Rfam assigns this 97-nucleotide RNA sequence from Kingdonia uniflora to the family "Small nucleolar RNA Z152/R70/R12/". NCBI's taxonomy places the organism under Eukaryota, Streptophyta, Euphyllophyta, Mesangiospermae, Kingdonia. Pairs were carried over by alignment from the consensus structure, which was predicted with PFOLD. For this family Rfam cites "Identification of 66 box C/D snoRNAs in Arabidopsis thaliana: extensive gene duplications generated multiple isoforms predicting new ribosomal RNA 2'-O-methylation sites" (Barneche et al., J Mol Biol, 2001). Rfam classes the family as a C/D-box small nucleolar RNA. Rfam links the family to the GO terms RNA processing and nucleolus. The match comes from Rfam's covariance-model search (67 bits). The family has 9 seed sequences and 604 matches in Rfam 15.1.

[Rfam]
RNA sequence: GAUGCAAUGAUGAGAUUGGUUGAGUGUUUGGGCAGUGGUGGAGAGAUCUUCCGUGAGCCUUAUCACUAAUAUACGACUUCUCCUUCCGCUGAGCAUC
Numbered sequence: 001g002a003u004g005c006a007a008u009g010a011u012g013a014g015a016u017u018g019g020u021u022g023a024g025u026g027u028u029u030g031g032g033c034a035g036u037g038g039u040g041g042a043g044a045g046a047u048c049u050u051c052c053g054u055g056a057g058c059c060u061u062a063u064c065a066c067u068a069a070u071a072u073a074c075g076a077c078u079u080c081u082c083c084u085u086c087c088g089c090u091g092a093g094c095a096u097c
Stems, first nucleotide, its partner, number of pairs: 001097005